[Rfam]
RNA: Small nucleolar RNA Z152/R70/R12/
Organism: Kalanchoe fedtschenkoi
RNA sequence: GAUGCUGUGAUGAGAUGAAGCACUGGAUGUGUCAAAUGGGCAGUGGUUGUUCAACCGUGAGCCUCUUAUAUUAAAACGACUUCUCCUUCCACUGAGCAUU
Numbered sequence: 001g002a003u004g005c006u007g008u009g010a011u012g013a014g015a016u017g018a019a020g021c022a023c024u025g026g027a028u029g030u031g032u033c034a035a036a037u038g039g040g041c042a043g044u045g046g047u048u049g050u051u052c053a054a055c056c057g058u059g060a061g062c063c064u065c066u067u068a069u070a071u072u073a074a075a076a077c078g079a080c081u082u083c084u085c086c087u088u089c090c091a092c093u094g095a096g097c098a099u100u
Stems, first nucleotide, its partner, number of pairs: 001100005